[Rfam]
RNA sequence: UGGGAAUGUCUCCUAGCCGUUAUCCGCGGAGGCACUCGGCCAUGCUGUGGGUUGAAAUAAACCUUAGACGCCAGUCGUCAAGAGUGUGGUGUGAGGAUGGGUUUAAUGCCCU
Numbered sequence: 001u002g003g004g005a006a007u008g009u010c011u012c013c014u015a016g017c018c019g020u021u022a023u024c025c026g027c028g029g030a031g032g033c034a035c036u037c038g039g040c041c042a043u044g045c046u047g048u049g050g051g052u053u054g055a056a057a058u059a060a061a062c063c064u065u066a067g068a069c070g071c072c073a074g075u076c077g078u079c080a081a082g083a084g085u086g087u088g089g090u091g092u093g094a095g096g097a098u099g100g101g102u103u104u105a106a107u108g109c110c111c112u
Stems, first nucleotide, its partner, number of pairs: 001019003007034007035095004039090008049064005067079004099111004
The family of this 112-nucleotide sequence from Paenibacillus swuensis is "epsC RNA".
The family's consensus secondary structure is taken from published work.
A search with the family's covariance model found it, with a score of 105 bits.